The record is a 31-nucleotide sequence from Vulpes vulpes, which matches "XIST RNA A repeat" in Rfam.
Pairs were carried over by alignment from the consensus structure, which was predicted with CMfinder.
The organism belongs to Vulpes, within Eukaryota.
The family has 54 seed sequences and 900 matches in Rfam 15.1.
On this family, see Duszczyk et al., RNA 2011: "The Xist RNA A-repeat comprises a novel AUCG tetraloop fold and a platform for multimerization".

RNA sequence: UUGCCCACCGGGGCCUCGGAUACCUGCUAUG
Numbered sequence: 001u002u003g004c005c006c007a008c009c010g011g012g013g014c015c016u017c018g019g020a021u022a023c024c025u026g027c028u029a030u031g
Stems, first nucleotide, its partner, number of pairs: 003014004017026003